[Rfam]
RNA sequence: AUCUCUCCUUGGACUUUUGGCUUAGAUCCAGGGUAGACCUGAUCGUAUCAGCUGUAAAAUCUGAUAUGUCCUCCAUGAGAGGGUUGUGUGUUGAGCAGAUUUUUGGUCUUGGGAGGUGGAGUUGGAGCUUGCUCUGUCCCCUCCAUGCAUUGGCCUGGUAUUGCAGCGCUUCCAGGAGUGGUGCACCCACC
Numbered sequence: 001a002u003c004u005c006u007c008c009u010u011g012g013a014c015u016u017u018u019g020g021c022u023u024a025g026a027u028c029c030a031g032g033g034u035a036g037a038c039c040u041g042a043u044c045g046u047a048u049c050a051g052c053u054g055u056a057a058a059a060u061c062u063g064a065u066a067u068g069u070c071c072u073c074c075a076u077g078a079g080a081g082g083g084u085u086g087u088g089u090g091u092u093g094a095g096c097a098g099a100u101u102u103u104u105g106g107u108c109u110u111g112g113g114a115g116g117u118g119g120a121g122u123u124g125g126a127g128c129u130u131g132c133u134c135u136g137u138c139c140c141c142u143c144c145a146u147g148c149a150u151u152g153g154c155c156u157g158g159u160a161u162u163g164c165a166g167c168g169c170u171u172c173c174a175g176g177a178g179u180g181g182u183g184c185a186c187c188c189a190c191c
Stems, first nucleotide, its partner, number of pairs: 008025002011022002014019001046066006068084006112144005118138002124135004147184006154176005
RNA: U2 spliceosomal RNA
Organism: Alligator sinensis